[Rfam]
RNA sequence: AGUCACAAGUUCAAGGCCAUAACAGAAGCGCCCACAGCGCAGCCGUAGCAGAUUCCAGUGAAUCUAUGAAUUCUGCU
Numbered sequence: 001a002g003u004c005a006c007a008a009g010u011u012c013a014a015g016g017c018c019a020u021a022a023c024a025g026a027a028g029c030g031c032c033c034a035c036a037g038c039g040c041a042g043c044c045g046u047a048g049c050a051g052a053u054u055c056c057a058g059u060g061a062a063u064c065u066a067u068g069a070a071u072u073c074u075g076c077u
Stems, first nucleotide, its partner, number of pairs: 013046001015044003021077001023075005028040003050065006
Mammalian CPEB3 ribozyme: a 77-nucleotide RNA from Crocodylus porosus. For this family Rfam cites "A genomewide search for ribozymes reveals an HDV-like sequence in the human CPEB3 gene" (Salehi-Ashtiani et al., Science, 2006). Rfam's curators write: The mammalian CPEB3 ribozyme is a self cleaving RNA located in the second intron of the CPEB3 gene which belongs to a family of genes regulating messenger RNA polyadenylation. The family's consensus secondary structure is taken from published work. It scores 43 bits against the family's covariance model.